[Rfam]
U4atac minor spliceosomal RNA: a 126-nucleotide RNA sequence from Otolemur garnettii.
Rfam classes the family as a spliceosomal small nuclear RNA.
Its Rfam clan is "U4 clan".
On this family, see Davila Lopez et al., Nucleic Acids Res 2008: "Computational screen for spliceosomal RNA genes aids in defining the phylogenetic distribution of major and minor spliceosomal components".
The base pairs follow the family's consensus structure, which is taken from published work.
From the family's description: U4atac is an essential component of the minor U12-type spliceosome complex which is required for removal of the rarer class of eukaryotic introns (AT-AC, U12-type).
The family has 61 seed sequences and 1,648 matches in Rfam 15.1.
RNA sequence: ACCCUCCUUUUCUUGGGGUUGCACUGCUGUCCAAUGAGUGCAUGGUGAGGGGCGUACUGCUAACACAUACACAACGUGCCCUUGUCAACUAGAGCUUUGCUUUAUAUUGGUGCAAUUUUUGGAAAA
Numbered sequence: 001a002c003c004c005u006c007c008u009u010u011u012c013u014u015g016g017g018g019u020u021g022c023a024c025u026g027c028u029g030u031c032c033a034a035u036g037a038g039u040g041c042a043u044g045g046u047g048a049g050g051g052g053c054g055u056a057c058u059g060c061u062a063a064c065a066c067a068u069a070c071a072c073a074a075c076g077u078g079c080c081c082u083u084g085u086c087a088a089c090u091a092g093a094g095c096u097u098u099g100c101u102u103u104a105u106a107u108u109g110g111u112g113c114a115a116u117u118u119u120u121g122g123a124a125a126a
Stems, first nucleotide, its partner, number of pairs: 006018004021060003026055002030051003038046002083112005090104006